[Rfam]
RNA sequence: CGGUGUCAAAUUGACUCUAGUAGGGAGUCCAGCUUUUAUUAAAAUGGCGACUCCCUAACGGAGUCAGAUUGACUCCUUC
Numbered sequence: 001c002g003g004u005g006u007c008a009a010a011u012u013g014a015c016u017c018u019a020g021u022a023g024g025g026a027g028u029c030c031a032g033c034u035u036u037u038a039u040u041a042a043a044a045u046g047g048c049g050a051c052u053c054c055c056u057a058a059c060g061g062a063g064u065c066a067g068a069u070u071g072a073c074u075c076c077u078u079c
Stems, first nucleotide, its partner, number of pairs: 011067008021057009
A member of the RNA family "mir-929 microRNA precursor family" from Pediculus humanus, 79 nucleotides long.
Rfam links the family to the GO terms miRNA-mediated post-transcriptional gene silencing and RISC complex.
Rfam 15.1 lists 147 matches to the family in 146 species.
For this family Rfam cites "Direct sequencing and expression analysis of a large number of miRNAs in Aedes aegypti and a multi-species survey of novel mosquito miRNAs" (Li et al., BMC Genomics, 2009).
NCBI's taxonomy places the organism under Eukaryota, Bilateria, Protostomia, Arthropoda, Pediculus humanus.
It scores 74 bits against the family's covariance model.
The base pairs follow the family's consensus structure, which was predicted with RNAalifold.